The family of this 132-nucleotide RNA sequence from Clostridium tepidiprofundi is "Ribosomal protein L10 leader".
[Rfam]
RNA sequence: UGUAAUAUAGAAUAUAUUCCGUAGACAGUAGGUGCUAGUUGAUAGCGUAAAGAUUGAUUCGCCUACCGAGGAUUCCAAUGCUUAGAAGUAAUGGUUUCUUCGUUUUGCGGAGAAACCUUUAAUUUUUUAAAA
Numbered sequence: 001u002g003u004a005a006u007a008u009a010g011a012a013u014a015u016a017u018u019c020c021g022u023a024g025a026c027a028g029u030a031g032g033u034g035c036u037a038g039u040u041g042a043u044a045g046c047g048u049a050a051a052g053a054u055u056g057a058u059u060c061g062c063c064u065a066c067c068g069a070g071g072a073u074u075c076c077a078a079u080g081c082u083u084a085g086a087a088g089u090a091a092u093g094g095u096u097u098c099u100u101c102g103u104u105u106u107g108c109g110g111a112g113a114a115a116c117c118u119u120u121a122a123u124u125u126u127u128u129a130a131a132a
Stems, first nucleotide, its partner, number of pairs: 028066006034046003093117010
The family's consensus secondary structure was predicted with CMfinder. About the family: This family is a putative r-protein leader autoregulatory structure found in B. subtilis and other low-GC Gram-positive bacteria. Taxonomically the source falls in Clostridium tepidiprofundi (Bacteria, Bacillota, Clostridia, Clostridium). It scores 73 bits against the family's covariance model.